[Rfam]
RNA sequence: GGUAUUUGAGGUGGUCAAUUUCGUGGCAGCCACACGCCGAUGGUCCCGCCAAGGGCUUAGGCUCUGAGAGAUGCAGGAGAACGCCACGCCUGCCAAAUACC
Numbered sequence: 001g002g003u004a005u006u007u008g009a010g011g012u013g014g015u016c017a018a019u020u021u022c023g024u025g026g027c028a029g030c031c032a033c034a035c036g037c038c039g040a041u042g043g044u045c046c047c048g049c050c051a052a053g054g055g056c057u058u059a060g061g062c063u064c065u066g067a068g069a070g071a072u073g074c075a076g077g078a079g080a081a082c083g084c085c086a087c088g089c090c091u092g093c094c095a096a097a098u099a100c101c
Base pairs, nucleotide, nucleotide: 001101002100003099004098005097006096007095008094011033012032013031014030015029023087024086025085026084027083035068036062037061038060073093074092075091076090077089
This 101-nucleotide RNA sequence belongs to the Rfam family "skipping-rope RNA". Rfam classes the family as a small RNA. The sequence is in the family's curated seed alignment.